[Rfam]
RNA sequence: CCGUUGGCCCCUCGCGACGCUAGUUCGAAAACCCCGCCAGGGCCGGAAGGCAGCAACGGUAUCGGAUGAUGCGGGCGCCGAGGAUCGUCGGCGGAGC
Numbered sequence: 001c002c003g004u005u006g007g008c009c010c011c012u013c014g015c016g017a018c019g020c021u022a023g024u025u026c027g028a029a030a031a032c033c034c035c036g037c038c039a040g041g042g043c044c045g046g047a048a049g050g051c052a053g054c055a056a057c058g059g060u061a062u063c064g065g066a067u068g069a070u071g072c073g074g075g076c077g078c079c080g081a082g083g084a085u086c087g088u089c090g091g092c093g094g095a096g097c
Stems, first nucleotide, its partner, number of pairs: 004091005010083005015075001018073003023067006034059003042051003
Shown here is a 97-nucleotide RNA from Lysobacteraceae bacterium NML03-0222, a member of the family "Bacterial small signal recognition particle RNA". The family's RNA type in Rfam is non-coding RNA gene. Lineage of the source: Bacteria > Pseudomonadati > Gammaproteobacteria > Lysobacterales > Lysobacteraceae. For this family Rfam cites "Prediction of signal recognition particle RNA genes" (Regalia et al., Nucleic Acids Res, 2002).